[Rfam]
RNA sequence: AUUGUAAUACAGCAACUGCCGAAGACAGUAGGUGCUGUAAAGCGUAAGGGUCAAAACGCCUACCGAGGAGAGUCAGAUUUAUUACGAAAGUAUGAAUUUACAAACCUCUGUGUCUUUGCGGCGCAGAGGUUUUUUACUUUGGCA
Numbered sequence: 001a002u003u004g005u006a007a008u009a010c011a012g013c014a015a016c017u018g019c020c021g022a023a024g025a026c027a028g029u030a031g032g033u034g035c036u037g038u039a040a041a042g043c044g045u046a047a048g049g050g051u052c053a054a055a056a057c058g059c060c061u062a063c064c065g066a067g068g069a070g071a072g073u074c075a076g077a078u079u080u081a082u083u084a085c086g087a088a089a090g091u092a093u094g095a096a097u098u099u100a101c102a103a104a105c106c107u108c109u110g111u112g113u114c115u116u117u118g119c120g121g122c123g124c125a126g127a128g129g130u131u132u133u134u135u136a137c138u139u140u141g142g143c144a
Base pairs, nucleotide, nucleotide: 028063029062030061031060032059033058034043035042036041105129106128107127108126109125110124111123112122113121114120
RNA: Ribosomal protein L10 leader